[Rfam]
RNA sequence: AUAGUUGCAGUGAUUAUAAAAAAAUUCCUCGUACUGAAUGCUAAUGAGCAUGACAGACAUCUUUACACCCAUAGAAUAUGAGCAACU
Numbered sequence: 001a002u003a004g005u006u007g008c009a010g011u012g013a014u015u016a017u018a019a020a021a022a023a024a025u026u027c028c029u030c031g032u033a034c035u036g037a038a039u040g041c042u043a044a045u046g047a048g049c050a051u052g053a054c055a056g057a058c059a060u061c062u063u064u065a066c067a068c069c070c071a072u073a074g075a076a077u078a079u080g081a082g083c084a085a086c087u
Stems, first nucleotide, its partner, number of pairs: 003087002006084002

Rfam assigns this 87-nucleotide RNA from Artemisia annua to the family "Small nucleolar RNA snoR8a".
The family's consensus secondary structure was predicted with WAR.
Its family is annotated with nucleolus and RNA processing in the Gene Ontology.
The literature on the family includes a 2001 paper in RNA by Brown et al., "Multiple snoRNA gene clusters from Arabidopsis".
NCBI's taxonomy places the organism under Eukaryota, eudicotyledons, Pentapetalae, Asterales, Artemisia.
It scores 84 bits against the family's covariance model.
The family has 7 seed sequences and 956 matches in Rfam 15.1.